[Rfam]
RNA: Small nucleolar RNA SNORD107
Organism: Trichechus manatus
RNA sequence: GGUUCGUGAUGACAAUGGACCUUAUCUGACCAUUAUGAUUUUAAAAUUUGAGCUUAAAAUGACUCUGAAAUC
Numbered sequence: 001g002g003u004u005c006g007u008g009a010u011g012a013c014a015a016u017g018g019a020c021c022u023u024a025u026c027u028g029a030c031c032a033u034u035a036u037g038a039u040u041u042u043a044a045a046a047u048u049u050g051a052g053c054u055u056a057a058a059a060u061g062a063c064u065c066u067g068a069a070a071u072c
Base pairs, nucleotide, nucleotide: 001072002071003070004069